[Rfam]
RNA: U4 spliceosomal RNA
RNA sequence: AGCUUUGCCCGGUGGCAGUAUUGUAGCCAAUGAGAGUUAUCCAAGGUACAAUUAUUGCUAAUUAAAAUUUUGACAUGUUGGAAUUUAAGUUCAUAUUUAUGUUUACAGAUAUGCGUUGUCUG
Numbered sequence: 001a002g003c004u005u006u007g008c009c010c011g012g013u014g015g016c017a018g019u020a021u022u023g024u025a026g027c028c029a030a031u032g033a034g035a036g037u038u039a040u041c042c043a044a045g046g047u048a049c050a051a052u053u054a055u056u057g058c059u060a061a062u063u064a065a066a067a068u069u070u071u072g073a074c075a076u077g078u079u080g081g082a083a084u085u086u087a088a089g090u091u092c093a094u095a096u097u098u099a100u101g102u103u104u105a106c107a108g109a110u111a112u113g114c115g116u117u118g119u120c121u122g
Stems, first nucleotide, its partner, number of pairs: 020052005026047003034042001036040001078108003081104004086099005